[Rfam]
RNA sequence: GGAUAUUUGAGAGGAUCUGACCUUAGUACGAGAGGACCGGGUUGGACAAACCGCUGGUGUAUCGGUUGUACUACCAAGUGCAUGGCCGAGUAGCCAAGUUUGGCAGGGAUAAACGCUGAAGGCAUCUAAGCGUGAAGCCUCCCUCAAGAUAAGAUAUCCCAUUGCAAUAAGCAAGUAAGACCCCUUGAAGACCACAAGGUAGAUAGGACAGAGGUGGAAGUGUGGUAACACAUGUAGCUGACUGUUACUAAUAGGUCGAGG
Numbered sequence: 001g002g003a004u005a006u007u008u009g010a011g012a013g014g015a016u017c018u019g020a021c022c023u024u025a026g027u028a029c030g031a032g033a034g035g036a037c038c039g040g041g042u043u044g045g046a047c048a049a050a051c052c053g054c055u056g057g058u059g060u061a062u063c064g065g066u067u068g069u070a071c072u073a074c075c076a077a078g079u080g081c082a083u084g085g086c087c088g089a090g091u092a093g094c095c096a097a098g099u100u101u102g103g104c105a106g107g108g109a110u111a112a113a114c115g116c117u118g119a120a121g122g123c124a125u126c127u128a129a130g131c132g133u134g135a136a137g138c139c140u141c142c143c144u145c146a147a148g149a150u151a152a153g154a155u156a157u158c159c160c161a162u163u164g165c166a167a168u169a170a171g172c173a174a175g176u177a178a179g180a181c182c183c184c185u186u187g188a189a190g191a192c193c194a195c196a197a198g199g200u201a202g203a204u205a206g207g208a209c210a211g212a213g214g215u216g217g218a219a220g221u222g223u224g225g226u227a228a229c230a231c232a233u234g235u236a237g238c239u240g241a242c243u244g245u246u247a248c249u250a251a252u253a254g255g256u257c258g259a260g261g
Stems, first nucleotide, its partner, number of pairs: 001159008011145004017045007047102005055096003062089005067082006106140003113133005162174003176259001179257004183199005204250003207246005213239002220233005
Bacterial large subunit ribosomal RNA: a 261-nucleotide part of an RNA from Herbinix luporum. The organism belongs to Herbinix, within Bacteria. Gene Ontology terms of the family: structural constituent of ribosome and ribosome. A search with the family's covariance model found it, with a score of 2906 bits.